[Rfam]
RNA sequence: GGUAGUAGCAAAUACUUCAAUGGGAACUUGAAGGGCCGAAGUGGGGAAAGGUUCCGCGCGAACAGCGGUUGGGCGCGGGUUAGUCGAUCCUAAGCCAUAGGGAAGUUCCGUUUCAAGGGCGCACUCAGGCGCGCCGCGUGGCGAAAGGGGAGCCGGUCAAGAUCCCGGCGCCCGGAUGUGGGUUUUGCGCGGCAACGCAACCGAACGCGGAGACGGCGGCGGGGGCCCCGGGCAGAGUUCUCUUUUCUUCUUAACGGCCCAUCGCCCUGAAAUCGGUUUGUCCGGAGCUAGGGCCCGACGGCCGGAAGAGCCCGGCACCUCUGCCGGGUCCGGUGCGCCCCCGACGCCCCCUGAAAAUCCGCGGGAGGGAAUAAUUCUCACGCCGGCUCGUACUCAUAACCGCAGCAGGUCUCCAAGGUGAACAGCCUCUGGUUGA
Numbered sequence: 001g002g003u004a005g006u007a008g009c010a011a012a013u014a015c016u017u018c019a020a021u022g023g024g025a026a027c028u029u030g031a032a033g034g035g036c037c038g039a040a041g042u043g044g045g046g047a048a049a050g051g052u053u054c055c056g057c058g059c060g061a062a063c064a065g066c067g068g069u070u071g072g073g074c075g076c077g078g079g080u081u082a083g084u085c086g087a088u089c090c091u092a093a094g095c096c097a098u099a100g101g102g103a104a105g106u107u108c109c110g111u112u113u114c115a116a117g118g119g120c121g122c123a124c125u126c127a128g129g130c131g132c133g134c135c136g137c138g139u140g141g142c143g144a145a146a147g148g149g150g151a152g153c154c155g156g157u158c159a160a161g162a163u164c165c166c167g168g169c170g171c172c173c174g175g176a177u178g179u180g181g182g183u184u185u186u187g188c189g190c191g192g193c194a195a196c197g198c199a200a201c202c203g204a205a206c207g208c209g210g211a212g213a214c215g216g217c218g219g220c221g222g223g224g225g226c227c228c229c230g231g232g233c234a235g236a237g238u239u240c241u242c243u244u245u246u247c248u249u250c251u252u253a254a255c256g257g258c259c260c261a262u263c264g265c266c267c268u269g270a271a272a273u274c275g276g277u278u279u280g281u282c283c284g285g286a287g288c289u290a291g292g293g294c295c296c297g298a299c300g301g302c303c304g305g306a307a308g309a310g311c312c313c314g315g316c317a318c319c320u321c322u323g324c325c326g327g328g329u330c331c332g333g334u335g336c337g338c339c340c341c342c343g344a345c346g347c348c349c350c351c352u353g354a355a356a357a358u359c360c361g362c363g364g365g366a367g368g369g370a371a372u373a374a375u376u377c378u379c380a381c382g383c384c385g386g387c388u389c390g391u392a393c394u395c396a397u398a399a400c401c402g403c404a405g406c407a408g409g410u411c412u413c414c415a416a417g418g419u420g421a422a423c424a425g426c427c428u429c430u431g432g433u434u435g436a
Stems, first nucleotide, its partner, number of pairs: 015033006034434004043414004049394002054078006063071002085390003089148002094142002097111002100109003119132003152169005172386004177382005182376001189198003206363006215348004220343007228333003231251002234248003255304005264294006273285004311328007400409002416428004
RNA: Eukaryotic large subunit ribosomal RNA, nucleotides 1440 to 1875